[Rfam]
RNA sequence: UCGGGUAUAAUUCAGCAGCGAGGUAUAGAGUUCCUACGUGCUUUGGUUACUGUAGGAACUUCAUACCGUGCUCUUGGAUGUGCCUAA
Numbered sequence: 001u002c003g004g005g006u007a008u009a010a011u012u013c014a015g016c017a018g019c020g021a022g023g024u025a026u027a028g029a030g031u032u033c034c035u036a037c038g039u040g041c042u043u044u045g046g047u048u049a050c051u052g053u054a055g056g057a058a059c060u061u062c063a064u065a066c067c068g069u070g071c072u073c074u075u076g077g078a079u080g081u082g083c084c085u086a087a
Base pairs, nucleotide, nucleotide: 012077013076014075017072018071019070020069022067023066024065025064026063028061029060030059031058032057033056034055035054036053037052